[Rfam]
RNA: Small nucleolar RNA snoR26
RNA sequence: AGAAAAUCAAUGAUGAAUGAAAUCCUUUUGUUAUCCUUGCAAGUUGCAUUUUGAUUGCUAGUGAAGAAAACUAUGGGGUGAUUUCGGGCUGAGAUGCUU
Numbered sequence: 001a002g003a004a005a006a007u008c009a010a011u012g013a014u015g016a017a018u019g020a021a022a023u024c025c026u027u028u029u030g031u032u033a034u035c036c037u038u039g040c041a042a043g044u045u046g047c048a049u050u051u052u053g054a055u056u057g058c059u060a061g062u063g064a065a066g067a068a069a070a071c072u073a074u075g076g077g078g079u080g081a082u083u084u085c086g087g088g089c090u091g092a093g094a095u096g097c098u099u
Stems, first nucleotide, its partner, number of pairs: 002099002006095003
Dot-bracket structure: .((..(((....................................................................................)))..))